[Rfam]
RNA sequence: AGUUAACUGUUACAGACAUGUAUUGAGUAGCGACAAUAUACAACAGUUAAUAUUAAAUUAAGUAGUGAUUAAAAGUUCUCCCAAACACACUACAUUCAACAAAGGCACACUUAUUUAUGUGAUGAGCGUGCCUU
Numbered sequence: 001a002g003u004u005a006a007c008u009g010u011u012a013c014a015g016a017c018a019u020g021u022a023u024u025g026a027g028u029a030g031c032g033a034c035a036a037u038a039u040a041c042a043a044c045a046g047u048u049a050a051u052a053u054u055a056a057a058u059u060a061a062g063u064a065g066u067g068a069u070u071a072a073a074a075g076u077u078c079u080c081c082c083a084a085a086c087a088c089a090c091u092a093c094a095u096u097c098a099a100c101a102a103a104g105g106c107a108c109a110c111u112u113a114u115u116u117a118u119g120u121g122a123u124g125a126g127c128g129u130g131c132c133u134u
Stems, first nucleotide, its partner, number of pairs: 002051007019040007065093003069089001077087001079085001103133006110126006
RNA: RNA Staph. aureus A